mir-921 microRNA precursor family: a 56-nucleotide sequence from Homo sapiens.
The organism belongs to Homo, within Eukaryota.

RNA sequence: ACUAGUGAGGGACAGAACCAGGAUUCAGACUCAGGUCCAUGGGCCUGGAUCACUGG
Numbered sequence: 001a002c003u004a005g006u007g008a009g010g011g012a013c014a015g016a017a018c019c020a021g022g023a024u025u026c027a028g029a030c031u032c033a034g035g036u037c038c039a040u041g042g043g044c045c046u047g048g049a050u051c052a053c054u055g056g
Stems, first nucleotide, its partner, number of pairs: 002056007013047003018042003021038005